[Rfam]
RNA: Guanidine-I riboswitch aptamer
Organism: Candidatus Synechococcus spongiarum
RNA sequence: GGAAGUGAUUUCUAGGGUUCCGGCCCCAAUCCCCCAGGGGUGUCUGGUCCAAGAGAAAUCCACUGGGGUCACCCAGAUGCACGGAGGGACAAAAGCCCGGGAGAC
Numbered sequence: 001g002g003a004a005g006u007g008a009u010u011u012c013u014a015g016g017g018u019u020c021c022g023g024c025c026c027c028a029a030u031c032c033c034c035c036a037g038g039g040g041u042g043u044c045u046g047g048u049c050c051a052a053g054a055g056a057a058a059u060c061c062a063c064u065g066g067g068g069u070c071a072c073c074c075a076g077a078u079g080c081a082c083g084g085a086g087g088g089a090c091a092a093a094a095g096c097c098c099g100g101g102a103g104a105c
Stems, first nucleotide, its partner, number of pairs: 007060006015050002020047002022044001023041005063076005080100001082103001086098003